[Rfam]
RNA sequence: UAUAAAUACAGGCAGAGAUGCACUGUAUACGUCUGAUUGCCGAUACGAGAUUGUAUUAAGCGUACUUGUAAGUACGCCGGGUCAGAUGGGGCAGCCUUUUGUGGGUUGCCUUUUUUCUUUU
Numbered sequence: 001u002a003u004a005a006a007u008a009c010a011g012g013c014a015g016a017g018a019u020g021c022a023c024u025g026u027a028u029a030c031g032u033c034u035g036a037u038u039g040c041c042g043a044u045a046c047g048a049g050a051u052u053g054u055a056u057u058a059a060g061c062g063u064a065c066u067u068g069u070a071a072g073u074a075c076g077c078c079g080g081g082u083c084a085g086a087u088g089g090g091g092c093a094g095c096c097u098u099u100u101g102u103g104g105g106u107u108g109c110c111u112u113u114u115u116u117c118u119u120u121u
Stems, first nucleotide, its partner, number of pairs: 007027005012021003030088006040080003043056005060077006089111009
RNA: DUF3800-I RNA